The family of this 45-nucleotide sequence from Dictyostelium purpureum is "Class I RNA from Dictyostelium". From the family's description: Dictyostelium Class I RNA was first reported for Aspegren et al. 2004 in Dictyostelium discoideum. Sucgang et al. 2011 identify putative homologs of Class I RNA in D. discoideum and D. purpureum. Taxonomically the source falls in Dictyostelium (Eukaryota, Amoebozoa, Dictyosteliales, Dictyosteliaceae). The sequence is in the family's curated seed alignment.

RNA sequence: GAAUUCCUUACAGCAAUAAACUUGACUCUGAAAUCUUAAAUUCUG
Numbered sequence: 001g002a003a004u005u006c007c008u009u010a011c012a013g014c015a016a017u018a019a020a021c022u023u024g025a026c027u028c029u030g031a032a033a034u035c036u037u038a039a040a041u042u043c044u045g
Base pairs, nucleotide, nucleotide: 001043002042003041004040005039